RNA sequence: GCCCCCGUAGCCCAAUGGCAGAGGCAAGCCCCUUAAAAGGGCUGUGGUGUGGGUUCGAGUCCCACCGGGGGCA
Numbered sequence: 001g002c003c004c005c006c007g008u009a010g011c012c013c014a015a016u017g018g019c020a021g022a023g024g025c026a027a028g029c030c031c032c033u034u035a036a037a038a039g040g041g042c043u044g045u046g047g048u049g050u051g052g053g054u055u056c057g058a059g060u061c062c063c064a065c066c067g068g069g070g071g072c073a
Stems, first nucleotide, its partner, number of pairs: 001072007010025003027043005049065005
RNA: tRNA